[Rfam]
RNA sequence: UAAGAGAAUGAGAGGCGUUUUUGCUGUGUCUCUCGUUGAUAAGAAGCAGAGGAAAAACAACACGGCGAGAUAUCGUUUCAGUCGCCAUUUCCUGGAUUGGCGAUUCGAUUGUUGCUCGUCUACAU
Numbered sequence: 001u002a003a004g005a006g007a008a009u010g011a012g013a014g015g016c017g018u019u020u021u022u023g024c025u026g027u028g029u030c031u032c033u034c035g036u037u038g039a040u041a042a043g044a045a046g047c048a049g050a051g052g053a054a055a056a057a058c059a060a061c062a063c064g065g066c067g068a069g070a071u072a073u074c075g076u077u078u079c080a081g082u083c084g085c086c087a088u089u090u091c092c093u094g095g096a097u098u099g100g101c102g103a104u105u106c107g108a109u110u111g112u113u114g115c116u117c118g119u120c121u122a123c124a125u
Base pairs, nucleotide, nucleotide: 007037008036009035010034011033012032013031014030015029016028017027064121065120067117068116069115072109073108074107075106081104082103083102084101085100086099087098089096090095

Rfam assigns this 125-nucleotide RNA from Tetracentron sinense to the family "Small nucleolar RNA snoR111".
Gene Ontology terms of the family: nucleolus and RNA processing.
The organism belongs to Tetracentron, within Eukaryota.
The base pairs follow the family's consensus structure, which was predicted with WAR.
On this family, see Marker et al., Curr Biol 2002: "Experimental RNomics: identification of 140 candidates for small non-messenger RNAs in the plant Arabidopsis thaliana".